[Rfam]
RNA sequence: GCCGGGACGGCCCGGCGUGCCGGAACCACCGCAGGACGACCUGC
Numbered sequence: 001g002c003c004g005g006g007a008c009g010g011c012c013c014g015g016c017g018u019g020c021c022g023g024a025a026c027c028a029c030c031g032c033a034g035g036a037c038g039a040c041c042u043g044c
Base pairs, nucleotide, nucleotide: 001016002015003014004013005012006011031044032043033042034041035040
Dot-bracket structure: ((((((....))))))..............(((((....)))))
A member of the RNA family "Guanidine-II riboswitch aptamer (mini-ykkC)" from Isoalcanivorax pacificus, 44 nucleotides long.
The family's consensus secondary structure is taken from published work.
Lineage of the source: Bacteria > Gammaproteobacteria > Alcanivoracaceae > Isoalcanivorax > Isoalcanivorax pacificus.